[Rfam]
About this RNA:
The record is a 47-nucleotide RNA from Chania multitudinisentens, which matches "Guanidine-II riboswitch aptamer (mini-ykkC)" in Rfam. The source organism's lineage runs through Bacteria, Pseudomonadati, Pseudomonadota, Chania and Chania multitudinisentens. It scores 45 bits against the family's covariance model.

RNA sequence: CAGGUGGGACGACCCACCUGCGCGUCUGUAGUAUGGGGACGACCCCA
Number, nucleotide and partner (000 for none) at each position: 001c020002a019003g018004g017005u016006g015007g014008g013009a000010c000011g000012a000013c008014c007015c006016a005017c004018c003019u002020g001021c000022g000023c000024g000025u000026c000027u000028g000029u000030a000031g000032u000033a000034u047035g046036g045037g044038g043039a000040c000041g000042a000043c038044c037045c036046c035047a034